[Rfam]
RNA: Mammalian CPEB3 ribozyme
RNA sequence: AGUUGCAAGUUUGAGACCAUACCAGAAGUGCUCACAGCGCAGCCCUGUCAGAUUCCAACAAAUCUACCAAUUCUGCU
Numbered sequence: 001a002g003u004u005g006c007a008a009g010u011u012u013g014a015g016a017c018c019a020u021a022c023c024a025g026a027a028g029u030g031c032u033c034a035c036a037g038c039g040c041a042g043c044c045c046u047g048u049c050a051g052a053u054u055c056c057a058a059c060a061a062a063u064c065u066a067c068c069a070a071u072u073c074u075g076c077u
Stems, first nucleotide, its partner, number of pairs: 013045001015044001017042001021077001023075005028040003050065005
Dot-bracket structure: ............[.[.[...(.((((((((.......))).].]]....(((((......))))).....))))).)